[Rfam]
RNA sequence: UGUCUCCUCCACCCUCCUCCUUUGGUGGAUUUGGCCCAAGGCUUCACCGCCUUGGGCCUUUUUCU
Numbered sequence: 001u002g003u004c005u006c007c008u009c010c011a012c013c014c015u016c017c018u019c020c021u022u023u024g025g026u027g028g029a030u031u032u033g034g035c036c037c038a039a040g041g042c043u044u045c046a047c048c049g050c051c052u053u054g055g056g057c058c059u060u061u062u063u064c065u
Base pairs, nucleotide, nucleotide: 008029009028010027011026012025013024033058034057035056036055037054038053039052040051